[Rfam]
RNA sequence: GAGUUCAGUCAGCCUAGUUCUAUAGUCAGAUAUAGAAGCGGGGGAACCAAUACAGGGGGCGUAUUUCUACUAUAGGUAGUCAGGGACAUCUCUCAGUCCUAGCCCGUCAGCUAACCUCGUCGGCAUUGAGAGGAGAUUGA
Number, nucleotide and partner (000 for none) at each position: 001g000002a000003g000004u000005u000006c000007a000008g000009u000010c000011a000012g124013c123014c122015u000016a000017g000018u037019u036020c035021u034022a033023u032024a031025g000026u000027c000028a000029g000030a000031u024032a023033u022034a021035g020036a019037a018038g120039c119040g118041g117042g116043g115044g000045a000046a000047c000048c056049a000050a000051u000052a000053c000054a000055g000056g048057g105058g104059g103060c000061g000062u000063a000064u000065u000066u000067c079068u078069a000070c000071u000072a000073u000074a000075g000076g000077u000078a068079g067080u000081c000082a000083g000084g099085g098086a097087c096088a000089u000090c000091u000092c000093u000094c000095a000096g087097u086098c085099c084100u000101a000102g000103c059104c058105c057106g000107u000108c000109a000110g000111c000112u000113a000114a000115c043116c042117u041118c040119g039120u038121c000122g014123g013124c012125a000126u000127u000128g000129a000130g000131a000132g000133g000134a000135g000136a000137u000138u000139g000140a000
RNA: c-di-AMP riboswitch aptamer (ydaO/yuaA leader)
Organism: Waterburya agarophytonicola